Rfam assigns this 67-nucleotide RNA sequence from Folsomia candida to the family "mir-2 microRNA precursor family". The source organism's lineage runs through Eukaryota, Mandibulata, Allotriocarida, Entomobryomorpha and Folsomia. Pairs were carried over by alignment from the consensus structure, which was predicted with PFOLD.
[Rfam]
RNA sequence: UGGCUCGCAAAGUGGGUGUGGUAUGUGGAUCUUGUCAUCAUAUCACAGCCAGCUUUGAUGAGCUAGG
Numbered sequence: 001u002g003g004c005u006c007g008c009a010a011a012g013u014g015g016g017u018g019u020g021g022u023a024u025g026u027g028g029a030u031c032u033u034g035u036c037a038u039c040a041u042a043u044c045a046c047a048g049c050c051a052g053c054u055u056u057g058a059u060g061a062g063c064u065a066g067g
Base pairs, nucleotide, nucleotide: 005061006060007059008057009056010055011054012053013051014050015049017047018046019045020044021043024042025041026040
Dot-bracket structure: ....(((((((((((.(((((..(((.............)))))))).))).))))).)))......